[Rfam]
RNA sequence: AGCCUUCUUUAUUCAAAACCAGAUUUCAUCAGAUACUAUGUCAUCAGGGCAGAUAAGACUUCUAAGAUAAGUGAAGCG
Numbered sequence: 001a002g003c004c005u006u007c008u009u010u011a012u013u014c015a016a017a018a019c020c021a022g023a024u025u026u027c028a029u030c031a032g033a034u035a036c037u038a039u040g041u042c043a044u045c046a047g048g049g050c051a052g053a054u055a056a057g058a059c060u061u062c063u064a065a066g067a068u069a070a071g072u073g074a075a076g077c078g
Stems, first nucleotide, its partner, number of pairs: 002077002005074002008071006016063001021060002024058003028054003
Rfam assigns this 78-nucleotide RNA sequence from Schistosoma japonicum to the family "mir-3492 microRNA precursor family".
The source organism's lineage runs through Eukaryota, Bilateria, Rhabditophora, Trematoda and Schistosoma.